[Rfam]
A member of the RNA family "Streptomyces RNA 4115" from Streptacidiphilus jiangxiensis, 112 nucleotides long.
RNA sequence: GCGUGGGUCGGCCUGCCGUCGAGGACCCGGCGGGUCGGGGGACGCCGCCGCCGUACAUCCCCGCGCGGCGGCGGACCGGCCCGGGGGGUGUGCGGACACCCCCCGGGCCGCG
Numbered sequence: 001g002c003g004u005g006g007g008u009c010g011g012c013c014u015g016c017c018g019u020c021g022a023g024g025a026c027c028c029g030g031c032g033g034g035u036c037g038g039g040g041g042a043c044g045c046c047g048c049c050g051c052c053g054u055a056c057a058u059c060c061c062c063g064c065g066c067g068g069c070g071g072c073g074g075a076c077c078g079g080c081c082c083g084g085g086g087g088g089u090g091u092g093c094g095g096a097c098a099c100c101c102c103c104c105g106g107g108c109c110g111c112g
Stems, first nucleotide, its partner, number of pairs: 001111002006077003009037010038043001045074009056063001078109013
Dot-bracket structure: ((...(((((((((((((.........))))))))))(....).(((((((((..(......)..))))))))))))(((((((((((((......))))))))))))))).
Overview:
The literature on the family includes a 2011 paper in RNA Biol by Vockenhuber et al., "Deep sequencing-based identification of small non-coding RNAs in Streptomyces coelicolor".